[Rfam]
RNA sequence: CAGCAUUAACCAUCCAUUAACGCUAAGCGUGUUAAAUGGUUGAUAUCCAGUUUUUCUGGAUACUUACCGAGUGGUUUCGCCACUCUGUUUGACGCCUCCCUGUUAAACUCCUGAGAGCCGCUUUCGCGGCUCUUUUUUU
Numbered sequence: 001c002a003g004c005a006u007u008a009a010c011c012a013u014c015c016a017u018u019a020a021c022g023c024u025a026a027g028c029g030u031g032u033u034a035a036a037u038g039g040u041u042g043a044u045a046u047c048c049a050g051u052u053u054u055u056c057u058g059g060a061u062a063c064u065u066a067c068c069g070a071g072u073g074g075u076u077u078c079g080c081c082a083c084u085c086u087g088u089u090u091g092a093c094g095c096c097u098c099c100c101u102g103u104u105a106a107a108c109u110c111c112u113g114a115g116a117g118c119c120g121c122u123u124u125c126g127c128g129g130c131u132c133u134u135u136u137u138u139u
Stems, first nucleotide, its partner, number of pairs: 001038001003011001013036001018034006045061004069085006091104004113134009
A member of the RNA family "Alphaproteobacterial sRNA BjrC1505" from Paramesorhizobium endophyticum, 139 nucleotides long.
It is annotated as a small RNA.
Lineage of the source: Bacteria > Pseudomonadati > Pseudomonadota > Alphaproteobacteria > Paramesorhizobium.